About this RNA:
Guanidine-II riboswitch aptamer (mini-ykkC): a 50-nucleotide RNA sequence from Rhizobium sp. LC145. Rfam's curators write: Simpler in structure and has fewer highly conserved nucleotide positions than the ykkC-yxkD leader.

[Rfam]
RNA sequence: GAAAGAGGACGGCCUCUUUUCCGAAAUCCCUGAUGACCAGGACGGCCUGG
Numbered sequence: 001g002a003a004a005g006a007g008g009a010c011g012g013c014c015u016c017u018u019u020u021c022c023g024a025a026a027u028c029c030c031u032g033a034u035g036a037c038c039a040g041g042a043c044g045g046c047c048u049g050g
Stems, first nucleotide, its partner, number of pairs: 001020008037050005